[Rfam]
RNA: Y RNA
Organism: Cavia porcellus
RNA sequence: GGCUGGUCCGAUGGCGGUGGGUUAUCAGAACUUAUUAACAUUAGUGUCACUAAAGUUGGUAUACCACCCCCCCACACACAACUGCUAAAUUUGACUGGCUUUAA
Numbered sequence: 001g002g003c004u005g006g007u008c009c010g011a012u013g014g015c016g017g018u019g020g021g022u023u024a025u026c027a028g029a030a031c032u033u034a035u036u037a038a039c040a041u042u043a044g045u046g047u048c049a050c051u052a053a054a055g056u057u058g059g060u061a062u063a064c065c066a067c068c069c070c071c072c073c074a075c076a077c078a079c080a081a082c083u084g085c086u087a088a089a090u091u092u093g094a095c096u097g098g099c100u101u102u103a104a
Base pairs, nucleotide, nucleotide: 001100002099003098004097005096006095007094008093010092011091014085015084017079018078019077021075033061034060035059037057038056
Dot-bracket structure: ((((((((.((..((.(((.(...........(((.((.................)).))).............).)))....)).....))))))))))....